Background: Small nucleolar RNA MBII-202: a 90-nucleotide RNA sequence from Jaculus jaculus. The family's RNA type in Rfam is C/D-box small nucleolar RNA. A reference for the family is Huttenhofer et al. (2001), "RNomics: an experimental approach that identifies 201 candidates for novel, small, non-messenger RNAs in mouse", EMBO J.

RNA sequence: UGAUGACAUUUCUCCGGAAUCGCUGUACUUCUGCCUUGAUGAAAGUACCUUUGAACCCUUUUCCAUCUGACGCCACCGAUCUUCCUCGUC
Numbered sequence: 001u002g003a004u005g006a007c008a009u010u011u012c013u014c015c016g017g018a019a020u021c022g023c024u025g026u027a028c029u030u031c032u033g034c035c036u037u038g039a040u041g042a043a044a045g046u047a048c049c050u051u052u053g054a055a056c057c058c059u060u061u062u063c064c065a066u067c068u069g070a071c072g073c074c075a076c077c078g079a080u081c082u083u084c085c086u087c088g089u090c
Stems, first nucleotide, its partner, number of pairs: 002090005
NCBI's taxonomy places the organism under Eukaryota, Chordata, Teleostomi, Sarcopterygii, Jaculus. The family has 30 seed sequences and 745 matches in Rfam 15.1.